[Rfam]
RNA sequence: UUAUUAACUAUGUACCGCGCAUAUCACUUAGAUGGGCUAUAUAAAGUAACAUAUAGG
Numbered sequence: 001u002u003a004u005u006a007a008c009u010a011u012g013u014a015c016c017g018c019g020c021a022u023a024u025c026a027c028u029u030a031g032a033u034g035g036g037c038u039a040u041a042u043a044a045a046g047u048a049a050c051a052u053a054u055a056g057g
Base pairs, nucleotide, nucleotide: 019037020036022034023033024032025031
RNA: Plastid-ndhJ 3UTR RNA
Organism: Malus baccata